[Rfam]
Mycobacterium sRNA Ms_AS-5: a 45-nucleotide RNA sequence from Mycobacterium bohemicum.
RNA sequence: GUCCGGGUAUUGCCCGGUGAAGAUCGUCGGGCGGCUGGGCACACA
Dot-bracket structure: ...........(((((((.......))))))).............

NCBI's taxonomy places the organism under Bacteria, Bacillati, Actinomycetes, Mycobacteriaceae, Mycobacterium.